[Rfam]
RNA sequence: AGCUUUGCGCAGUGGCAGUAUCGUAGCCUAUGAGGUUUAUCCGAGGUGCGAUUAUUGCUAGUUGAAAACUUUACCCAAUACCCCGCCUGGACGACUUGAAAUACAGUCGGUCAUGGCAAUUUUUGCAAGUCUCUUGAGAGA
Numbered sequence: 001a002g003c004u005u006u007g008c009g010c011a012g013u014g015g016c017a018g019u020a021u022c023g024u025a026g027c028c029u030a031u032g033a034g035g036u037u038u039a040u041c042c043g044a045g046g047u048g049c050g051a052u053u054a055u056u057g058c059u060a061g062u063u064g065a066a067a068a069c070u071u072u073a074c075c076c077a078a079u080a081c082c083c084c085g086c087c088u089g090g091a092c093g094a095c096u097u098g099a100a101a102u103a104c105a106g107u108c109g110g111u112c113a114u115g116g117c118a119a120u121u122u123u124u125g126c127a128a129g130u131c132u133c134u135u136g137a138g139a140g141a
Stems, first nucleotide, its partner, number of pairs: 020052005026047003034042002085117003088113003092109005130141004

Annotation
The family of this 141-nucleotide RNA sequence from Albula goreensis is "U4 spliceosomal RNA". Taxonomically the source falls in Albula (Eukaryota, Actinopterygii, Neopterygii, Elopocephala). The family is grouped with related families in Rfam's "U4 clan".